[Rfam]
RNA sequence: CAGCGCGUCGGUGAUGGGGCUCACCGCGAACCGCGGCAUCAUGCCGCUGACGGUCCCUGGCAGAAC
Numbered sequence: 001c002a003g004c005g006c007g008u009c010g011g012u013g014a015u016g017g018g019g020c021u022c023a024c025c026g027c028g029a030a031c032c033g034c035g036g037c038a039u040c041a042u043g044c045c046g047c048u049g050a051c052g053g054u055c056c057c058u059g060g061c062a063g064a065a066c
Base pairs, nucleotide, nucleotide: 010025011024012023013022016057017056018055019054020053021052033047034046035045036044
Description:
A member of the RNA family "Fluoride riboswitch aptamer (crcB RNA motif)" from Streptomyces sp. SAT1, 66 nucleotides long. The source organism's lineage runs through Bacteria, Actinomycetota, Actinomycetes, Kitasatosporales and Streptomyces. The match comes from Rfam's covariance-model search (34 bits).